[Rfam]
RNA sequence: CUGUGUCGCCCUCCUUGGGCGUUUCCUCCCUAGACUUCGGGCUGCGCUUCGGCGUAGCCCUUUUUUCUUUUGGGG
Numbered sequence: 001c002u003g004u005g006u007c008g009c010c011c012u013c014c015u016u017g018g019g020c021g022u023u024u025c026c027u028c029c030c031u032a033g034a035c036u037u038c039g040g041g042c043u044g045c046g047c048u049u050c051g052g053c054g055u056a057g058c059c060c061u062u063u064u065u066u067c068u069u070u071u072g073g074g075g
Base pairs, nucleotide, nucleotide: 008020009019010018011017039060040059041058042057043056044055045054046053047052